Notes
glmS glucosamine-6-phosphate activated ribozyme aptamer: a 159-nucleotide RNA sequence from Halolactibacillus alkaliphilus. About the family: This entry contains a glucosamine-6-phosphate activated ribozyme that is found in the mRNA for GlmS. GlmS is an enzyme that uses fructose-6-phosphate and glutamine to generate glucosamine-6-phosphate. The ribozyme catalyses self cleavage of the glmS mRNA that is thought to regulate GlmS activity. It scores 120 bits against the family's covariance model.
RNA sequence: AAGAUUUCUGCAGCGCCAGAACUACAUUGAGUAUGUAGUUGACGAGGAGGAGGAGUAUCGAACGUUUCGGCGGAUGCCUCCCGGUUGUCCCUCCAACCGACAAGUUGUAAAUAAAACAAAAAGGCGACUUUUUGAACAAUCUUUACAAUAAGCAGGUCA
Numbered sequence: 001a002a003g004a005u006u007u008c009u010g011c012a013g014c015g016c017c018a019g020a021a022c023u024a025c026a027u028u029g030a031g032u033a034u035g036u037a038g039u040u041g042a043c044g045a046g047g048a049g050g051a052g053g054a055g056u057a058u059c060g061a062a063c064g065u066u067u068c069g070g071c072g073g074a075u076g077c078c079u080c081c082c083g084g085u086u087g088u089c090c091c092u093c094c095a096a097c098c099g100a101c102a103a104g105u106u107g108u109a110a111a112u113a114a115a116a117c118a119a120a121a122a123g124g125c126g127a128c129u130u131u132u133u134g135a136a137c138a139a140u141c142u143u144u145a146c147a148a149u150a151a152g153c154a155g156g157u158c159a
Stems, first nucleotide, its partner, number of pairs: 020040008049081005058070004082099006104149007117134007

The organism belongs to Halolactibacillus, within Bacteria. For this family Rfam cites "Control of gene expression by a natural metabolite-responsive ribozyme" (Winkler et al., Nature, 2004). Pairs were carried over by alignment from the consensus structure, which is taken from published work.